[Rfam]
RNA sequence: AGGCAUUUAGGAAGUGCUUAGCUGGUUAAGCUUAGAUUAUUUGAAGCUAACUUAAUCGUCAUGAGAGUUUGCUGGUAGGGAUACAGGCA
Numbered sequence: 001a002g003g004c005a006u007u008u009a010g011g012a013a014g015u016g017c018u019u020a021g022c023u024g025g026u027u028a029a030g031c032u033u034a035g036a037u038u039a040u041u042u043g044a045a046g047c048u049a050a051c052u053u054a055a056u057c058g059u060c061a062u063g064a065g066a067g068u069u070u071g072c073u074g075g076u077a078g079g080g081a082u083a084c085a086g087g088c089a
Stems, first nucleotide, its partner, number of pairs: 001019008024052005032044004067088005